[Rfam]
RNA sequence: ACCGUUAGGUCGGAUCGGCCCUCCACAGGUUUCUGCCUCGGUGAUAUUUCAAGUAUGAUUAUCACCGGGUGAAAAUCAGAGCAGGUCCGAUUCCAGCCA
Numbered sequence: 001a002c003c004g005u006u007a008g009g010u011c012g013g014a015u016c017g018g019c020c021c022u023c024c025a026c027a028g029g030u031u032u033c034u035g036c037c038u039c040g041g042u043g044a045u046a047u048u049u050c051a052a053g054u055a056u057g058a059u060u061a062u063c064a065c066c067g068g069g070u071g072a073a074a075a076u077c078a079g080a081g082c083a084g085g086u087c088c089g090a091u092u093c094c095a096g097c098c099a
Stems, first nucleotide, its partner, number of pairs: 016089003020085003024081001026079001028077005034071004039067001041065006
RNA: mir-36 microRNA precursor family
Organism: Caenorhabditis latens